[Rfam]
RNA sequence: GGGUCUAGUGGAGUAUCCCUAGAGGUAUUAUUUGAUGGUCGGGCCGCCAUCC
Numbered sequence: 001g002g003g004u005c006u007a008g009u010g011g012a013g014u015a016u017c018c019c020u021a022g023a024g025g026u027a028u029u030a031u032u033u034g035a036u037g038g039u040c041g042g043g044c045c046g047c048c049a050u051c052c
Stems, first nucleotide, its partner, number of pairs: 005022004010017002034051006
This 52-nucleotide RNA belongs to the Rfam family "nhaA-I RNA". Acidobacteria, Alphaproteobacteria, Betaproteobacteria and Gammaproteobacteria, Verrucomicrobia, cand. division NC10. Rfam classes the family as a riboswitch.